[Rfam]
RNA: Small nucleolar RNA snoR109
Organism: Solanum lycopersicum
Nucleotides: 090
Base pairs, nucleotide, nucleotide: 028082029081030080031079032078033077038071039070040069042067043066044065046062047061048060049059
Number, partner (000 for none) and nucleotide at each position: 001000c002000g003000g004000c005000u006000g007000u008000a009000g010000c011000c012000a013000c014000a015000u016000g017000u018000a019000a020000a021000u022000a023000a024000u025000u026000c027000u028082g029081a030080a031079g032078u033077u034000u035000a036000c037000u038071g039070g040069c041000c042067g043066g044065u045000u046062g047061u048060u049059g050000u051000a052000a053000a054000u055000c056000u057000g058000u059049u060048g061047a062046c063000a064000u065044a066043u067042c068000u069040g070039c071038u072000u073000a074000c075000c076000g077033a078032a079031c080030u081029u082028c083000u084000u085000a086000c087000a088000u089000u090000u